[Rfam]
RNA sequence: GGGGUAGCUUCGGUUGAGCUGUCAGACCCCCGACCCGACAGCUCAACCGGAGCGCCUC
Dot-bracket structure: .((((.((((((.((((((((((.............)))))))))).)))))))))).
Numbered sequence: 001g002g003g004g005u006a007g008c009u010u011c012g013g014u015u016g017a018g019c020u021g022u023c024a025g026a027c028c029c030c031c032g033a034c035c036c037g038a039c040a041g042c043u044c045a046a047c048c049g050g051a052g053c054g055c056c057u058c
Stems, first nucleotide, its partner, number of pairs: 002057004007053006014046010